Notes: The family of this 211-nucleotide RNA sequence from Schizosaccharomyces pombe is "small nucleolar RNA snR96".

[Rfam]
RNA sequence: GCGGAAUCGUCAGCACUCGUUAAACAGGGAGUAAGAGGGAGUAAUAGAGUUGCCUGCAAGAGAAAACCUAGUUCAAACCUGCGAAAUUUGACGUGCAGUCAGUAGACGACGACCUGGCUGUAAACUAGCAUUUUUUACGAUUAAUUAGAAAGGUUAUUUGCUUUUUGAUUAAAUACGGAGAGUUUGGAUAACACAAGGGAUCGAAACAUUU
Numbered sequence: 001g002c003g004g005a006a007u008c009g010u011c012a013g014c015a016c017u018c019g020u021u022a023a024a025c026a027g028g029g030a031g032u033a034a035g036a037g038g039g040a041g042u043a044a045u046a047g048a049g050u051u052g053c054c055u056g057c058a059a060g061a062g063a064a065a066a067c068c069u070a071g072u073u074c075a076a077a078c079c080u081g082c083g084a085a086a087u088u089u090g091a092c093g094u095g096c097a098g099u100c101a102g103u104a105g106a107c108g109a110c111g112a113c114c115u116g117g118c119u120g121u122a123a124a125c126u127a128g129c130a131u132u133u134u135u136u137a138c139g140a141u142u143a144a145u146u147a148g149a150a151a152g153g154u155u156a157u158u159u160g161c162u163u164u165u166u167g168a169u170u171a172a173a174u175a176c177g178g179a180g181a182g183u184u185u186g187g188a189u190a191a192c193a194c195a196a197g198g199g200a201u202c203g204a205a206a207c208a209u210u211u
Base pairs, nucleotide, nucleotide: 001096002095003094008093009092010091011090012089013088017084018083019082025081026080027079028078036055037054038053040051041050113199114198115197119193120192121191125187126186127185128184130183131182132181133180134179135178136177141172142171143170144169145168146167147166148165149164150163151162152161

It is one of the family's seed sequences.
The family's consensus secondary structure was predicted with RNAalifold.
By type it is an H/ACA-box small nucleolar RNA.